[Rfam]
RNA: Lysine riboswitch aptamer
RNA sequence: UAAAAGGGUAGAGGCGCACCGCCUAAGAGUAAAUUGUAAGAGGGUGAUACUUAUGACGACAAUUGAAAGGAGUCGGUGCCGAAGUUAAUUACGUUAAUCGAGCGUAUUAGCUGGGGUUAUUUCGAAGAGGAAUAACACUGCCAUAGUCAAUUUUAUUUUUUAACUAUGGAGCGCUACUGUAGGG
Number, nucleotide and partner (000 for none) at each position: 001u000002a000003a000004a000005a000006g000007g178008g177009u176010a175011g174012a000013g000014g000015c000016g079017c078018a077019c076020c075021g074022c000023c072024u071025a000026a000027g000028a000029g000030u000031a000032a064033a063034u062035u061036g060037u059038a000039a000040g000041a000042g000043g000044g000045u000046g000047a000048u000049a000050c000051u000052u000053a000054u000055g000056a000057c000058g000059a037060c036061a035062a034063u033064u032065g000066a000067a000068a000069g000070g000071a024072g023073u000074c021075g020076g019077u018078g017079c016080c000081g000082a000083a112084g111085u110086u109087a108088a107089u000090u106091a105092c104093g103094u102095u000096a000097a000098u000099c000100g000101a000102g094103c093104g092105u091106a090107u088108u087109a086110g085111c084112u083113g139114g138115g000116g136117u135118u134119a133120u132121u131122u130123c129124g000125a000126a000127g000128a000129g123130g122131a121132a120133u119134a118135a117136c116137a000138c114139u113140g000141c169142c168143a167144u166145a165146g164147u163148c000149a000150a000151u000152u000153u000154u000155a000156u000157u000158u000159u000160u000161u000162a000163a147164c146165u145166a144167u143168g142169g141170a000171g000172c000173g000174c011175u010176a009177c008178u007179g000180u000181a000182g000183g000184g000